This 96-nucleotide sequence from Pseudolactococcus reticulitermitis belongs to the Rfam family "Purine riboswitch aptamer". Rfam describes the family as follows. Riboswitches are metabolite binding domains within certain messenger RNAs that serve as precision sensors for their corresponding targets. Pairs were carried over by alignment from the consensus structure, which is taken from published work. The source organism's lineage runs through Bacteria, Bacillati, Bacillota, Lactobacillales and Pseudolactococcus.
RNA sequence: UAAUCUUAAAAAAUAACAGCUUAUUUAUGCUCGUAAUCGGUCGAGCGUCUCUACUUGGCACCGGAAUGCCAAACAAUAAGCAAGGAGUCAGGCUCU
Dot-bracket structure: ..................(((((((...(((((........)))))........((((((......))))))..)))))))...............
Numbered sequence: 001u002a003a004u005c006u007u008a009a010a011a012a013a014u015a016a017c018a019g020c021u022u023a024u025u026u027a028u029g030c031u032c033g034u035a036a037u038c039g040g041u042c043g044a045g046c047g048u049c050u051c052u053a054c055u056u057g058g059c060a061c062c063g064g065a066a067u068g069c070c071a072a073a074c075a076a077u078a079a080g081c082a083a084g085g086a087g088u089c090a091g092g093c094u095c096u
Stems, first nucleotide, its partner, number of pairs: 019081007029046005055072006